RNA sequence: CAGCAGCCCUUCAGGUAUUCCAAAACUGUUUAAAAAUCGUACAGUCGGCGGCUGGACGCUUACGGAUUAUAGCCAAUACUUAUAUUCGCCACCGCCGCAUCUCCCCCAAGUGCAGCGUUGGUAAGGACACCAAUGGACAGCGUGUCUUUGUUUUACUCCUAAUGGUCUUAACCCGGAUUCACCCCCCAGAACCCGG
Numbered sequence: 001c002a003g004c005a006g007c008c009c010u011u012c013a014g015g016u017a018u019u020c021c022a023a024a025a026c027u028g029u030u031u032a033a034a035a036a037u038c039g040u041a042c043a044g045u046c047g048g049c050g051g052c053u054g055g056a057c058g059c060u061u062a063c064g065g066a067u068u069a070u071a072g073c074c075a076a077u078a079c080u081u082a083u084a085u086u087c088g089c090c091a092c093c094g095c096c097g098c099a100u101c102u103c104c105c106c107c108a109a110g111u112g113c114a115g116c117g118u119u120g121g122u123a124a125g126g127a128c129a130c131c132a133a134u135g136g137a138c139a140g141c142g143u144g145u146c147u148u149u150g151u152u153u154u155a156c157u158c159c160u161a162a163u164g165g166u167c168u169u170a171a172c173c174c175g176g177a178u179u180c181a182c183c184c185c186c187c188a189g190a191a192c193c194c195g196g
Base pairs, nucleotide, nucleotide: 039167042164043163088122089121090120091119093117094116098112099111100110123149124148125147126146127145128144129143130142131140173196174195175194176193178191179190180189

This 196-nucleotide RNA sequence from Pseudomonas graminis belongs to the Rfam family "RgsA sRNA". Rfam links the family to the GO terms response to hydrogen peroxide, sRNA-mediated gene silencing and response to oxidative stress. The match comes from Rfam's covariance-model search (163 bits). This small RNA (sRNA) was computationally identified in the genome of the opportunistic pathogen Pseudomonas aeruginosa and its expression verified by northern blot analysis. The base pairs follow the family's consensus structure, which was predicted with RNAalifold. The organism belongs to Pseudomonas, within Bacteria.